[Rfam]
RNA sequence: AUCACCUGGGAAUUCUGUUAAAAUGCAGAUUCUGAGUCAGUAGAUCCAGAGUGGGGCCUGGGAUUCUGCAUUUCCAACCAACUCCCAGGUGAUGCUAG
Numbered sequence: 001a002u003c004a005c006c007u008g009g010g011a012a013u014u015c016u017g018u019u020a021a022a023a024u025g026c027a028g029a030u031u032c033u034g035a036g037u038c039a040g041u042a043g044a045u046c047c048a049g050a051g052u053g054g055g056g057c058c059u060g061g062g063a064u065u066c067u068g069c070a071u072u073u074c075c076a077a078c079c080a081a082c083u084c085c086c087a088g089g090u091g092a093u094g095c096u097a098g
Base pairs, nucleotide, nucleotide: 003091004090005089009085010084011083014081017078018077019076021073022072023071025069026068027067028066029065031063032062033061
This 98-nucleotide RNA from Gorilla gorilla belongs to the Rfam family "mir-544 microRNA precursor family". Taxonomically the source falls in Gorilla gorilla (Eukaryota, Deuterostomia, Gnathostomata, Eutheria). It scores 68 bits against the family's covariance model. For this family Rfam cites "Mammalian microRNAs: experimental evaluation of novel and previously annotated genes" (Chiang et al., Genes Dev, 2010). Gene Ontology terms of the family: miRNA-mediated post-transcriptional gene silencing and RISC complex.